[Rfam]
RNA sequence: CACGGCCAUCCGCCGAGUCCGGUGCCUCCGGAGCCGGGGACCCACCGAACUUGGGGUGAAUCGGCCCGACCUCCCGUCCUGGGAGCGGCCGUAGGGCAACCCUUCCGAACCACCCGCCCGAACCCGACAGCUAACUCGGUAGGCGGAGCAUGGAAGGAGU
Numbered sequence: 001c002a003c004g005g006c007c008a009u010c011c012g013c014c015g016a017g018u019c020c021g022g023u024g025c026c027u028c029c030g031g032a033g034c035c036g037g038g039g040a041c042c043c044a045c046c047g048a049a050c051u052u053g054g055g056g057u058g059a060a061u062c063g064g065c066c067c068g069a070c071c072u073c074c075c076g077u078c079c080u081g082g083g084a085g086c087g088g089c090c091g092u093a094g095g096g097c098a099a100c101c102c103u104u105c106c107g108a109a110c111c112a113c114c115c116g117c118c119c120g121a122a123c124c125c126g127a128c129a130g131c132u133a134a135c136u137c138g139g140u141a142g143g144c145g146g147a148g149c150a151u152g153g154a155a156g157g158a159g160u
Stems, first nucleotide, its partner, number of pairs: 011145004018032003033140006043053002054125003062091004094119004
The record is a 160-nucleotide RNA from Streptomyces sp. NRRL WC-3605, which matches "c-di-AMP riboswitch aptamer (ydaO/yuaA leader)" in Rfam.
The organism belongs to Streptomyces, within Bacteria.
Pairs were carried over by alignment from the consensus structure.